Rfam assigns this 137-nucleotide sequence from Cnephaeus nilssonii to the family "Small nucleolar RNA SNORA8". Gene Ontology terms of the family: nucleolus and RNA processing. ACA8 is a member of the H/ACA class of snoRNA that guide the sites of modification of uridines to pseudouridines. The base pairs follow the family's consensus structure, which was predicted with RNAfold.
RNA sequence: UGCACUGCAUGGUGUCUACAUUCAGCAGUUUAUUCCUGCUGGGUGUUCAAAGGACAGUAUGAUAUAAAUUCAGUGUCUGGCAUUGUUGGUUGUCUUGGCUUCAUGCAUGUUAAACCUGGAUUUUUAUUGAUACAGUA
Numbered sequence: 001u002g003c004a005c006u007g008c009a010u011g012g013u014g015u016c017u018a019c020a021u022u023c024a025g026c027a028g029u030u031u032a033u034u035c036c037u038g039c040u041g042g043g044u045g046u047u048c049a050a051a052g053g054a055c056a057g058u059a060u061g062a063u064a065u066a067a068a069u070u071c072a073g074u075g076u077c078u079g080g081c082a083u084u085g086u087u088g089g090u091u092g093u094c095u096u097g098g099c100u101u102c103a104u105g106c107a108u109g110u111u112a113a114a115c116c117u118g119g120a121u122u123u124u125u126a127u128u129g130a131u132a133c134a135g136u137a
Stems, first nucleotide, its partner, number of pairs: 002060001004058004015053003018046011063126002066123008080106004